[Rfam]
RNA sequence: CCAAAGGCAAGGAUCGGGACCAGCAUAGGAACCUUCUGCUGUAGAGAGCCGCUGGCUGGUGAAAAGCGGCGCAGAAAUCUUAUCCACUCACCCGUAAGCUGUAACCUGAACACAUCACACGAUGCCAGUAAACGUUACCGUCUGCUCACACGUUAUCGUGAGAACAUAUUCGAAGUCUGGAUAUGUGAGGGGAAUGAUGCUUUUCAUCAUUCAACAAGAGUGGUACCGCGGAAUUGGUGAUAAACUUCCGUCUCUUAG
Numbered sequence: 001c002c003a004a005a006g007g008c009a010a011g012g013a014u015c016g017g018g019a020c021c022a023g024c025a026u027a028g029g030a031a032c033c034u035u036c037u038g039c040u041g042u043a044g045a046g047a048g049c050c051g052c053u054g055g056c057u058g059g060u061g062a063a064a065a066g067c068g069g070c071g072c073a074g075a076a077a078u079c080u081u082a083u084c085c086a087c088u089c090a091c092c093c094g095u096a097a098g099c100u101g102u103a104a105c106c107u108g109a110a111c112a113c114a115u116c117a118c119a120c121g122a123u124g125c126c127a128g129u130a131a132a133c134g135u136u137a138c139c140g141u142c143u144g145c146u147c148a149c150a151c152g153u154u155a156u157c158g159u160g161a162g163a164a165c166a167u168a169u170u171c172g173a174a175g176u177c178u179g180g181a182u183a184u185g186u187g188a189g190g191g192g193a194a195u196g197a198u199g200c201u202u203u204u205c206a207u208c209a210u211u212c213a214a215c216a217a218g219a220g221u222g223g224u225a226c227c228g229c230g231g232a233a234u235u236g237g238u239g240a241u242a243a244a245c246u247u248c249c250g251u252c253u254c255u256u257a258g
Stems, first nucleotide, its partner, number of pairs: 007099002015094004026082004037073003048070006102137004107132001139152003192212007217255004228251005

This 258-nucleotide RNA from [Clostridium] innocuum belongs to the Rfam family "T-box leader".
NCBI's taxonomy places the organism under Bacteria, Bacillati, Bacillota, Clostridiaceae, [Clostridium] innocuum.